[Rfam]
RNA: t44 RNA
RNA sequence: UGGCGAGAGCCUUAAACCCACACAUGCAUCGACACGAUGGCCUGGGUGCCCGCAAGGGUUGGUCAUUGGGAUGCAUGGAGGCCCAAC
Numbered sequence: 001u002g003g004c005g006a007g008a009g010c011c012u013u014a015a016a017c018c019c020a021c022a023c024a025u026g027c028a029u030c031g032a033c034a035c036g037a038u039g040g041c042c043u044g045g046g047u048g049c050c051c052g053c054a055a056g057g058g059u060u061g062g063u064c065a066u067u068g069g070g071a072u073g074c075a076u077g078g079a080g081g082c083c084c085a086a087c
Stems, first nucleotide, its partner, number of pairs: 023077008035068008048059004